This 191-nucleotide RNA from Castor canadensis belongs to the Rfam family "U2 spliceosomal RNA". Lineage of the source: Eukaryota > Vertebrata > Euarchontoglires > Castoridae > Castor. The match comes from Rfam's covariance-model search (86 bits). Rfam classes the family as a spliceosomal small nuclear RNA. Rfam links the family to the GO terms pre-mRNA branch point binding, U2 snRNP and mRNA branch site recognition. U2 is a small nuclear RNA (snRNA) component of the spliceosome (involved in pre-mRNA splicing). Complementary binding between U2 snRNA (in an area lying towards the 5' end but 3' to hairpin I) and the branchpoint sequence (BPS) of the intron results the bulging out of an unpaired adenosine, on the BPS, which initiates a nucleophilic attack at the intronic 5' splice site, thus starting the first of two transesterification reactions that mediate splicing. The family's consensus secondary structure is taken from published work.
RNA sequence: AUCGUUUCUCUGCCUUUUGGUCAAGAACAAAUAUGGUAUGUGUUCUUAUUAGUUUAACAUCUGAUACGUUCUCUAUCCGAGGACAAUAUGUUAAAUAGGUUUUUGGAACAGAGAGAUGGAAUAGGGUCUUAUUUCAGUACUUCCAGGAGCGGUGUGCAUUUUCUCCGGCGUGCGCACGUUGUUGUUCAAAA
Numbered sequence: 001a002u003c004g005u006u007u008c009u010c011u012g013c014c015u016u017u018u019g020g021u022c023a024a025g026a027a028c029a030a031a032u033a034u035g036g037u038a039u040g041u042g043u044u045c046u047u048a049u050u051a052g053u054u055u056a057a058c059a060u061c062u063g064a065u066a067c068g069u070u071c072u073c074u075a076u077c078c079g080a081g082g083a084c085a086a087u088a089u090g091u092u093a094a095a096u097a098g099g100u101u102u103u104u105g106g107a108a109c110a111g112a113g114a115g116a117u118g119g120a121a122u123a124g125g126g127u128c129u130u131a132u133u134u135c136a137g138u139a140c141u142u143c144c145a146g147g148a149g150c151g152g153u154g155u156g157c158a159u160u161u162u163c164u165c166c167g168g169c170g171u172g173c174g175c176a177c178g179u180u181g182u183u184g185u186u187c188a189a190a191a
Stems, first nucleotide, its partner, number of pairs: 007026003012021003047066006068084006113143003117139002124135003147187006153178005